[Rfam]
RNA: Small nucleolar RNA SNORD121A
RNA sequence: UAGGAGGAGAUAAUGAUGGUUACAAGCACAUAGCUGAAUCUUAAUAUGUGAACUACUUCAAUGACUGAAUCUCCUUCCA
Numbered sequence: 001u002a003g004g005a006g007g008a009g010a011u012a013a014u015g016a017u018g019g020u021u022a023c024a025a026g027c028a029c030a031u032a033g034c035u036g037a038a039u040c041u042u043a044a045u046a047u048g049u050g051a052a053c054u055a056c057u058u059c060a061a062u063g064a065c066u067g068a069a070u071c072u073c074c075u076u077c078c079a
Stems, first nucleotide, its partner, number of pairs: 001079001003077004008072004